[Rfam]
RNA sequence: UUAAGUUAACUACAUAAAAUAUGUUGUCUCCUUUAAUUAAAUGCAUCAACCUCUUGUAGAAAACAUCUUGGGCUUUUACGGCUUAUUAAGGCAAAUGCAUAGAAUUAAAGGAGAUGAAAUAUAUUUUAUGUGGUUAACUUAACU
Numbered sequence: 001u002u003a004a005g006u007u008a009a010c011u012a013c014a015u016a017a018a019a020u021a022u023g024u025u026g027u028c029u030c031c032u033u034u035a036a037u038u039a040a041a042u043g044c045a046u047c048a049a050c051c052u053c054u055u056g057u058a059g060a061a062a063a064c065a066u067c068u069u070g071g072g073c074u075u076u077u078a079c080g081g082c083u084u085a086u087u088a089a090g091g092c093a094a095a096u097g098c099a100u101a102g103a104a105u106u107a108a109a110g111g112a113g114a115u116g117a118a119a120u121a122u123a124u125u126u127u128a129u130g131u132g133g134u135u136a137a138c139u140u141a142a143c144u
Base pairs, nucleotide, nucleotide: 001142002141003140004139005138006137007136008135009134010133011132012131013130014129015128016127017126018125019124020123021122022121023120024117025116028113029112030111031110032109033108034107035106036105037104038103041100042099043098044097045096046095050091051090052089

The record is a 144-nucleotide RNA sequence from Solanum commersonii, which matches "MIR7993 microRNA precursor family" in Rfam.
Rfam 15.1 lists 59 matches to the family in 6 species.
Its family is annotated with miRNA-mediated post-transcriptional gene silencing and RISC complex in the Gene Ontology.
The organism belongs to Solanum, within Eukaryota.